[Rfam]
Rfam assigns this 44-nucleotide RNA from Paenochrobactrum gallinarii to the family "Guanidine-II riboswitch aptamer (mini-ykkC)".

RNA sequence: UUCGGGACGACCCGAACAGUGUAAUUCAGACGGGGACGACCCCA
Numbered sequence: 001u002u003c004g005g006g007a008c009g010a011c012c013c014g015a016a017c018a019g020u021g022u023a024a025u026u027c028a029g030a031c032g033g034g035g036a037c038g039a040c041c042c043c044a
Stems, first nucleotide, its partner, number of pairs: 001016006032043004
The family has 72 seed sequences and 1,589 matches in Rfam 15.1.